RNA sequence: CUUGAUCGAAUACCUGAUUCCGUAAUGAUCAUCCUCGGGAAGGUGCGCCCAUUUUCACGCCCCCAC
Number, nucleotide and partner (000 for none) at each position: 001c000002u000003u031004g030005a029006u028007c027008g021009a000010a019011u000012a000013c000014c000015u000016g000017a000018u000019u010020c000021c008022g000023u000024a000025a000026u000027g007028a006029u005030c004031a003032u000033c000034c000035u000036c000037g000038g000039g056040a055041a054042g053043g052044u051045g050046c000047g000048c000049c000050c045051a044052u043053u042054u041055u040056c039057a000058c000059g000060c000061c000062c000063c000064c000065a000066c000